[Rfam]
RNA: Small nucleolar RNA R11/Z151
RNA sequence: AGGCUUAUGAUGAUAACUACAAUUAUCUUAGGGGAUUUCAGUGAGAUUUAAUUAUCAGUGAUCUGAUUGUUACACACCCUGAGGCCC
Numbered sequence: 001a002g003g004c005u006u007a008u009g010a011u012g013a014u015a016a017c018u019a020c021a022a023u024u025a026u027c028u029u030a031g032g033g034g035a036u037u038u039c040a041g042u043g044a045g046a047u048u049u050a051a052u053u054a055u056c057a058g059u060g061a062u063c064u065g066a067u068u069g070u071u072a073c074a075c076a077c078c079c080u081g082a083g084g085c086c087c
Stems, first nucleotide, its partner, number of pairs: 002086004